[Rfam]
RNA sequence: AUCUCCUUAGCUCUGCUCAGUUGCACUUAGCCAAGCAUGGUGUGACUGUCGUACACGGGAGAGAGAACAAGAAUUCCCUUCGACAACAGCUUGACCUGCAGUGGUCUCUCUGUUCUUUAUGGGACUUGACAGUG
Dot-bracket structure: .((((.((..((.((...((((((((.............))))))))......)).)).)).)))).......((((....(.....((...((((......))))...))...).....))))..........
RNA: Small nucleolar RNA SNORA64/SNORA10 family